This 139-nucleotide RNA sequence from Oryza sativa belongs to the Rfam family "Small nucleolar RNA Z247".
Nucleotides: 139
Base pairs, nucleotide, nucleotide: 004138005137006136007135008134089107090106091105092104
Number, partner (000 for none) and nucleotide at each position: 001000a002000a003000g004138c005137u006136c007135g008134a009000c010000g011000a012000c013000g014000a015000c016000g017000a018000c019000a020000u021000c022000g023000u024000c025000u026000c027000c028000g029000a030000c031000a032000u033000c034000c035000u036000g037000g038000c039000u040000g041000g042000g043000c044000u045000c046000g047000a048000u049000g050000a051000u052000g053000a054000u055000u056000u057000u058000g059000a060000c061000c062000c063000g064000g065000u066000u067000g068000u069000c070000u071000c072000u073000g074000c075000a076000g077000u078000c079000g080000c081000c082000c083000a084000a085000c086000g087000u088000u089107c090106u091105g092104a093000g094000c095000c096000a097000a098000u099000c100000u101000c102000a103000g104092u105091c106090g107089g108000u109000g110000a111000g112000u113000u114000g115000u116000u117000u118000u119000c120000a121000c122000a123000g124000c125000u126000u127000g128000u129000u130000a131000c132000u133000u134008u135007u136006g137005a138004g139000c
The family has 8 seed sequences and 7,071 matches in Rfam 15.1. Its family is annotated with nucleolus and RNA processing in the Gene Ontology. The literature on the family includes a 2003 paper in Nucleic Acids Res by Chen et al., "The high diversity of snoRNAs in plants: identification and comparative study of 120 snoRNA genes from Oryza sativa". Taxonomically the source falls in Oryza sativa (Eukaryota, Tracheophyta, Euphyllophyta, Spermatophyta).